This 96-nucleotide sequence from Enterocloster bolteae belongs to the Rfam family "Purine riboswitch aptamer". Rfam's curators put it in the seed alignment. On this family, see Reining et al., Nature 2013: "Three-state mechanism couples ligand and temperature sensing in riboswitches".
RNA sequence: GAAGUAUAAGUAUUCAAAACUUAUAUAUGCUCAAGAUAGGUUGAGCGUUUCUACCAACUACCGUAAUAGUUGACUAUAAGUUUUCACAUCAGGUAC
Numbered sequence: 001g002a003a004g005u006a007u008a009a010g011u012a013u014u015c016a017a018a019a020c021u022u023a024u025a026u027a028u029g030c031u032c033a034a035g036a037u038a039g040g041u042u043g044a045g046c047g048u049u050u051c052u053a054c055c056a057a058c059u060a061c062c063g064u065a066a067u068a069g070u071u072g073a074c075u076a077u078a079a080g081u082u083u084u085c086a087c088a089u090c091a092g093g094u095a096c
Base pairs, nucleotide, nucleotide: 018082019081020080021079022078023077024076025075029046030045031044032043033042034041055072056071057070058069059068060067
Dot-bracket structure: .................((((((((...((((((......))))))........((((((......))))))..))))))))..............